Shown here is a 94-nucleotide RNA from Centaurea solstitialis, a member of the family "Small nucleolar RNA Z221/R21b". Rfam links the family to the GO terms nucleolus and RNA processing. By type it is a C/D-box small nucleolar RNA. The match comes from Rfam's covariance-model search (58 bits).
RNA sequence: GAGCAGUGAUGAGAACUUAGGAAAGUCAUGCACCACUCUGAUAUUCAUUGUGAAUGAUAAACUUUCUCCAUACCCAUAUUUUGUUUCUGAGCUC
Dot-bracket structure: ((((......................................................................................))))